[Rfam]
RNA sequence: AAACCAGAUGACGAGUUUGGAUUCAAAUCUCACGACGGUCGUCUGAGACACCUCAAAGUGUCAGCACUGAUGCACUGAUCCAAUGUUUCUGAUGGUU
Numbered sequence: 001a002a003a004c005c006a007g008a009u010g011a012c013g014a015g016u017u018u019g020g021a022u023u024c025a026a027a028u029c030u031c032a033c034g035a036c037g038g039u040c041g042u043c044u045g046a047g048a049c050a051c052c053u054c055a056a057a058g059u060g061u062c063a064g065c066a067c068u069g070a071u072g073c074a075c076u077g078a079u080c081c082a083a084u085g086u087u088u089c090u091g092a093u094g095g096u097u
Base pairs, nucleotide, nucleotide: 001097002096004094049060050059051058